[Rfam]
RNA: chrB-b RNA
RNA sequence: UGGGGAAACGCAGACUCCCCUCUAGACGGUCUCUCACGUCCAAGCUCUGC
Numbered sequence: 001u002g003g004g005g006a007a008a009c010g011c012a013g014a015c016u017c018c019c020c021u022c023u024a025g026a027c028g029g030u031c032u033c034u035c036a037c038g039u040c041c042a043a044g045c046u047c048u049g050c
Base pairs, nucleotide, nucleotide: 002020003019004018005017006016010050011049012048013047014046025040026039027038028037